[Rfam]
RNA sequence: AACCUAUCAAGAGUCAGGGGAGGAAACUGGUCCAUUGAUCCUGCGGCAACCAUACUCUAUUUGUUAUUCCGAGUAAAGGUGCUAAAUCCAGCAAACGAAACUUGUUUGAAAGAUGGGAA
Numbered sequence: 001a002a003c004c005u006a007u008c009a010a011g012a013g014u015c016a017g018g019g020g021a022g023g024a025a026a027c028u029g030g031u032c033c034a035u036u037g038a039u040c041c042u043g044c045g046g047c048a049a050c051c052a053u054a055c056u057c058u059a060u061u062u063g064u065u066a067u068u069c070c071g072a073g074u075a076a077a078g079g080u081g082c083u084a085a086a087u088c089c090a091g092c093a094a095a096c097g098a099a100a101c102u103u104g105u106u107u108g109a110a111a112g113a114u115g116g117g118a119a
Base pairs, nucleotide, nucleotide: 003117004116005115006114007113008112013044015043016042017041018040022033023032024031027091028090029089030088045083046082047081048080050079051078053075054074055073056072087111092108093107094106095105096104097103
This 119-nucleotide sequence from Virgibacillus salexigens belongs to the Rfam family "SAM riboswitch aptamer (S box leader)".
The base pairs follow the family's consensus structure, which is taken from published work.
It scores 77 bits against the family's covariance model.